[Rfam]
RNA sequence: UGUUGUAUACUGCGAUAGUCUUACAAUGAUAUGAUCAGUUAUACGCAUGGGAUAAAAUAAUACUGGCCCAUUAUAAAUUGAGGUGAAGUAACCAUUUUCAUCUCUUGUGCAUGGACUAGACAUUG
Numbered sequence: 001u002g003u004u005g006u007a008u009a010c011u012g013c014g015a016u017a018g019u020c021u022u023a024c025a026a027u028g029a030u031a032u033g034a035u036c037a038g039u040u041a042u043a044c045g046c047a048u049g050g051g052a053u054a055a056a057a058u059a060a061u062a063c064u065g066g067c068c069c070a071u072u073a074u075a076a077a078u079u080g081a082g083g084u085g086a087a088g089u090a091a092c093c094a095u096u097u098u099c100a101u102c103u104c105u106u107g108u109g110c111a112u113g114g115a116c117u118a119g120a121c122a123u124u125g
Base pairs, nucleotide, nucleotide: 001047009039010038011037012036016031017030019029020028063119064118065117066116068114069113070112072111074109075108080104081103082102083101084100085098086097087096088095089094